Shown here is a 144-nucleotide RNA sequence from Acidihalobacter ferrooxydans, a member of the family "FMN riboswitch aptamer (RFN element)". Rfam links the family to the GO term FMN binding.
RNA sequence: CACAUACCUCAGGGCGGGGUGAAAUUCCCCACCGGCGGUAUCUCCGGCAACGGAGAAGCCCGCGAGCGCCUGCCUAUGGCAGGGUCAGCAGAUCCGGUGAGACGCCGGAGCCGACGGUGAUAGUCCGGAUGAGAGAGGUGCUAC
Numbered sequence: 001c002a003c004a005u006a007c008c009u010c011a012g013g014g015c016g017g018g019g020u021g022a023a024a025u026u027c028c029c030c031a032c033c034g035g036c037g038g039u040a041u042c043u044c045c046g047g048c049a050a051c052g053g054a055g056a057a058g059c060c061c062g063c064g065a066g067c068g069c070c071u072g073c074c075u076a077u078g079g080c081a082g083g084g085u086c087a088g089c090a091g092a093u094c095c096g097g098u099g100a101g102a103c104g105c106c107g108g109a110g111c112c113g114a115c116g117g118u119g120a121u122a123g124u125c126c127g128g129a130u131g132a133g134a135g136a137g138g139u140g141c142u143a144c
Stems, first nucleotide, its partner, number of pairs: 005140006017029003031124002033113002035063004058111002066089002093109005115127003